[Rfam]
RNA sequence: CUGAACGCGGGAGGCUCUGACGCGUGGCCGUGCCCACGGCCGCUCGGACUGUGCGGAGCCACUGGCAAGACCGACCCGCGCGGUG
Numbered sequence: 001c002u003g004a005a006c007g008c009g010g011g012a013g014g015c016u017c018u019g020a021c022g023c024g025u026g027g028c029c030g031u032g033c034c035c036a037c038g039g040c041c042g043c044u045c046g047g048a049c050u051g052u053g054c055g056g057a058g059c060c061a062c063u064g065g066c067a068a069g070a071c072c073g074a075c076c077c078g079c080g081c082g083g084u085g
Stems, first nucleotide, its partner, number of pairs: 001085001006080006013060003022054006029047001038072002042066003
RNA: c-di-GMP-II-GAG riboswitch aptamer